[Rfam]
RNA sequence: CGUAUGGUGUUUGGUGUCAAUUGUGGCGACCAGAUGGCGAUACGGCCCAAGUAUUGAGGU
Numbered sequence: 001c002g003u004a005u006g007g008u009g010u011u012u013g014g015u016g017u018c019a020a021u022u023g024u025g026g027c028g029a030c031c032a033g034a035u036g037g038c039g040a041u042a043c044g045g046c047c048c049a050a051g052u053a054u055u056g057a058g059g060u
Stems, first nucleotide, its partner, number of pairs: 001044005007038002011033005

A member of the RNA family "L31-Gammaproteobacteria ribosomal protein leader" from Agarivorans albus, 60 nucleotides long. It is annotated as a cis-regulatory leader. Lineage of the source: Bacteria > Pseudomonadota > Gammaproteobacteria > Alteromonadaceae > Agarivorans albus. Rfam's curators put it in the seed alignment. Clan: Ribosomal Protein L31 Leader clan.